[Rfam]
Nucleotides: 129
Stems, first nucleotide, its partner, number of pairs: 002129004007125008019033006034085004043056005057079004061073005
Number, partner (000 for none) and nucleotide at each position: 001000c002129u003128g004127a005126a006000c007125c008124g009123a010122u011121a012120c013119c014118u015000g016000c017000g018000g019033c020032a021031g022030g023029c024028u025000u026000u027000c028024a029023g030022c031021c032020u033019g034085g035084g036083g037082a038000a039000c040000g041000u042000u043056c044055c045054u046053g047052c048000u049000g050000a051000c052047g053046c054045a055044g056043g057079c058078g059077g060076u061073u062072g063071c064070a065069c066000u067000g068000a069065g070064u071063g072062c073061a074000u075000a076060a077059c078058c079057g080000g081000u082037u083036c084035c085034c086000g087000u088000g089000a090000u091000a092000c093000c094000c095000a096000a097000a098000c099000c100000c101000c102000a103000g104000a105000c106000a107000c108000u109000c110000c111000g112000g113000c114000g115000c116000a117000c118014a119013g120012g121011u122010a123009u124008u125007g126005u127004u128003c129002a